Rfam assigns this 329-nucleotide sequence from Catagonus wagneri to the family "7SK RNA".

RNA sequence: GGACUUAGGCGAUCUGGCUGUGACACCUGUCACCCCAUUGAUCUCCAGGGCUGAUUCAGCUGAUCUGACUGGCCAGCAGGAUGUCCCCUUCCUCCCUCAGGGCUCCAUGUGCAUCCCUCCUGAAGCUGCACACUGGGUCAAAGAGGGCGACCUUCCCUGAUGGAGCGAGGACCAUUCUUCAGUCGAGGGCAUACAAGUAGCGGCACUCCCUUGCUAGAACCUCCAAACAAACCCGCAAGAUCCAUUCAUAGGAGAACGUAGGAUAGUCAAGCUUCCAAGAUUCCAGACACAUCCAAAUGCGGUGCUGCAUGUGGCAGCUGCCUUACUUU
Numbered sequence: 001g002g003a004c005u006u007a008g009g010c011g012a013u014c015u016g017g018c019u020g021u022g023a024c025a026c027c028u029g030u031c032a033c034c035c036c037a038u039u040g041a042u043c044u045c046c047a048g049g050g051c052u053g054a055u056u057c058a059g060c061u062g063a064u065c066u067g068a069c070u071g072g073c074c075a076g077c078a079g080g081a082u083g084u085c086c087c088c089u090u091c092c093u094c095c096c097u098c099a100g101g102g103c104u105c106c107a108u109g110u111g112c113a114u115c116c117c118u119c120c121u122g123a124a125g126c127u128g129c130a131c132a133c134u135g136g137g138u139c140a141a142a143g144a145g146g147g148c149g150a151c152c153u154u155c156c157c158u159g160a161u162g163g164a165g166c167g168a169g170g171a172c173c174a175u176u177c178u179u180c181a182g183u184c185g186a187g188g189g190c191a192u193a194c195a196a197g198u199a200g201c202g203g204c205a206c207u208c209c210c211u212u213g214c215u216a217g218a219a220c221c222u223c224c225a226a227a228c229a230a231a232c233c234c235g236c237a238a239g240a241u242c243c244a245u246u247c248a249u250a251g252g253a254g255a256a257c258g259u260a261g262g263a264u265a266g267u268c269a270a271g272c273u274u275c276c277a278a279g280a281u282u283c284c285a286g287a288c289a290c291a292u293c294c295a296a297a298u299g300c301g302g303u304g305c306u307g308c309a310u311g312u313g314g315c316a317g318c319u320g321c322c323u324u325a326c327u328u329u
Stems, first nucleotide, its partner, number of pairs: 001106003005100002007097002009094001011091002016088002022085004027080002031076001033072002036067002040065004045059001114170002116167001117165003120137002123134001125133001138160003145156003200272002206266002210262005221254004227249001230246002295329003299324001301322003304318005
Rfam's curators write: 7SK was discovered as an abundant small nuclear RNA in the mid-70s but a possible function has only recently been suggested. Two independent studies have found that 7SK RNA binds the CDK9/cyclin T complex (known as elongation factor P-TEFb). P-TEFb activates transcription by phosphorylating the C-terminal domain of RNA polymerase II. This process is negatively regulated by the 7SK RNP. The secondary structure of 7SK RNA shown here was proposed by Wasserman and Steitz on the basis of chemical modification and enzymatic cleavage experiments. A search with the family's covariance model found it, with a score of 260 bits.